Rfam assigns this 297-nucleotide RNA sequence from Cohnella lubricantis to the family "glmS glucosamine-6-phosphate activated ribozyme aptamer". It scores 60 bits against the family's covariance model.
RNA sequence: UAGCUCGACCAAGCGCCAGAACUUGUCGGCCGAAGAGCGAAUCAAGUCGAAUGCAGCCGAAUUGUGAAUCGAAUCGGGACGGAGAAGAUGGAUUCGAGGACACGAGGGAGGAAGCAGGCAUCCUGUUGCGAGACAUGGACAGGAGCGACGGCUUGAGCAACCGCAUGAAGCGGCAAGUUGACGAGGUGGAGGUGUUCGGAUUGUUCGGCGGGGACCUCCCGGCCCGCAUCGGGGCCGACAGCCGGAAGACAAAUCGCUCAGGGCAACCGGGUGGACAAUAUUCCGGUACGAUGCUGA
Numbered sequence: 001u002a003g004c005u006c007g008a009c010c011a012a013g014c015g016c017c018a019g020a021a022c023u024u025g026u027c028g029g030c031c032g033a034a035g036a037g038c039g040a041a042u043c044a045a046g047u048c049g050a051a052u053g054c055a056g057c058c059g060a061a062u063u064g065u066g067a068a069u070c071g072a073a074u075c076g077g078g079a080c081g082g083a084g085a086a087g088a089u090g091g092a093u094u095c096g097a098g099g100a101c102a103c104g105a106g107g108g109a110g111g112a113a114g115c116a117g118g119c120a121u122c123c124u125g126u127u128g129c130g131a132g133a134c135a136u137g138g139a140c141a142g143g144a145g146c147g148a149c150g151g152c153u154u155g156a157g158c159a160a161c162c163g164c165a166u167g168a169a170g171c172g173g174c175a176a177g178u179u180g181a182c183g184a185g186g187u188g189g190a191g192g193u194g195u196u197c198g199g200a201u202u203g204u205u206c207g208g209c210g211g212g213g214a215c216c217u218c219c220c221g222g223c224c225c226g227c228a229u230c231g232g233g234g235c236c237g238a239c240a241g242c243c244g245g246a247a248g249a250c251a252a253a254u255c256g257c258u259c260a261g262g263g264c265a266a267c268c269g270g271g272u273g274g275a276c277a278a279u280a281u282u283c284c285g286g287u288a289c290g291a292u293g294c295u296g297a
Stems, first nucleotide, its partner, number of pairs: 020179008188219005196208004220237006241287007255273005261268002

The base pairs follow the family's consensus structure, which is taken from published work.
Lineage of the source: Bacteria > Bacillota > Caryophanales > Paenibacillaceae > Cohnella.